[Rfam]
RNA sequence: AAGCCGGAUGUGAGAGUUGGAGGAAACCAAAUCAGUGCACAGUCAGCCCACAUUACUGGUGAAAUGAUUUGGUUUCUUCCAAUAUCUCACAUCUGACCU
Numbered sequence: 001a002a003g004c005c006g007g008a009u010g011u012g013a014g015a016g017u018u019g020g021a022g023g024a025a026a027c028c029a030a031a032u033c034a035g036u037g038c039a040c041a042g043u044c045a046g047c048c049c050a051c052a053u054u055a056c057u058g059g060u061g062a063a064a065u066g067a068u069u070u071g072g073u074u075u076c077u078u079c080c081a082a083u084a085u086c087u088c089a090c091a092u093c094u095g096a097c098c099u
Stems, first nucleotide, its partner, number of pairs: 005095004011089004016083006023076008032067002
Shown here is a 99-nucleotide RNA from Camphora micrantha, a member of the family "MIR2275 microRNA precursor family".
The base pairs follow the family's consensus structure, which was predicted with RNAalifold.
NCBI's taxonomy places the organism under Eukaryota, Embryophyta, Euphyllophyta, Laurales, Camphora.
Its family is annotated with miRNA-mediated post-transcriptional gene silencing and RISC complex in the Gene Ontology.
It scores 66 bits against the family's covariance model.